A member of the RNA family "SAM riboswitch aptamer (S box leader)" from Listeria innocua, 103 nucleotides long. The base pairs follow the family's consensus structure, which is taken from published work. The organism belongs to Listeria, within Bacteria.
[Rfam]
RNA sequence: UUCUUAUCCAGAGUGGUGGAGGGAAUCGGCCCAGUGAAACCCGGCAGCGGAGCGCAAGUUCUAUGCUAAUUCCGAUCAGAAGUAAUAUUCUGGCAGAUAAGUA
Numbered sequence: 001u002u003c004u005u006a007u008c009c010a011g012a013g014u015g016g017u018g019g020a021g022g023g024a025a026u027c028g029g030c031c032c033a034g035u036g037a038a039a040c041c042c043g044g045c046a047g048c049g050g051a052g053c054g055c056a057a058g059u060u061c062u063a064u065g066c067u068a069a070u071u072c073c074g075a076u077c078a079g080a081a082g083u084a085a086u087a088u089u090c091u092g093g094c095a096g097a098u099a100a101g102u103a
Stems, first nucleotide, its partner, number of pairs: 001103001003101006013042001015041003021032003029072001043067004049062005071095001077092005